The record is a 159-nucleotide part of an RNA from Colletotrichum liriopes, which matches "Ascomycota telomerase RNA" in Rfam. Rfam links the family to the GO terms telomere maintenance via telomerase, telomerase activity and telomerase catalytic core complex.

RNA sequence: AUCCUCGUUGUUCUCUUUAGAGAUCAACACUUGCCCGAUUGUCUUCCUGAAACGGGGCCAAUGGAUGAGAGCGCGGUUUUUUAUGGACGUCUUUUGUCCGCGCGAAAUGCCCUCCUUUGCGAAUCGUCGCCGGAGAGGAAACAAAAACUAGCCCAAGGA
Numbered sequence: 001a002u003c004c005u006c007g008u009u010g011u012u013c014u015c016u017u018u019a020g021a022g023a024u025c026a027a028c029a030c031u032u033g034c035c036c037g038a039u040u041g042u043c044u045u046c047c048u049g050a051a052a053c054g055g056g057g058c059c060a061a062u063g064g065a066u067g068a069g070a071g072c073g074c075g076g077u078u079u080u081u082u083a084u085g086g087a088c089g090u091c092u093u094u095u096g097u098c099c100g101c102g103c104g105a106a107a108u109g110c111c112c113u114c115c116u117u118u119g120c121g122a123a124u125c126g127u128c129g130c131c132g133g134a135g136a137g138g139a140a141a142c143a144a145a146a147a148c149u150a151g152c153c154c155a156a157g158g159a
Stems, first nucleotide, its partner, number of pairs: 007028004013022003034067001035064003039060001046057001086153001088151001089148002092146006110138002112135004119130004
The pairing is the family consensus, mapped onto this sequence. A reference for the family is Qi et al. (2013), "The common ancestral core of vertebrate and fungal telomerase RNAs", Nucleic Acids Res.